[Rfam]
This 84-nucleotide RNA sequence from Dioscorea zingiberensis belongs to the Rfam family "Small nucleolar RNA R16". Rfam classes the family as a C/D-box small nucleolar RNA. A search with the family's covariance model found it, with a score of 74 bits.

RNA sequence: GGUUGCAAAUGAUGCAUAUUAUGUUAUCCUACACUCUGAAAAGUAUUUGUGGACAAUAUUCUCUGCUUAUUAUCUGAUGCCACC
Numbered sequence: 001g002g003u004u005g006c007a008a009a010u011g012a013u014g015c016a017u018a019u020u021a022u023g024u025u026a027u028c029c030u031a032c033a034c035u036c037u038g039a040a041a042a043g044u045a046u047u048u049g050u051g052g053a054c055a056a057u058a059u060u061c062u063c064u065g066c067u068u069a070u071u072a073u074c075u076g077a078u079g080c081c082a083c084c
Base pairs, nucleotide, nucleotide: 003082005080006079007078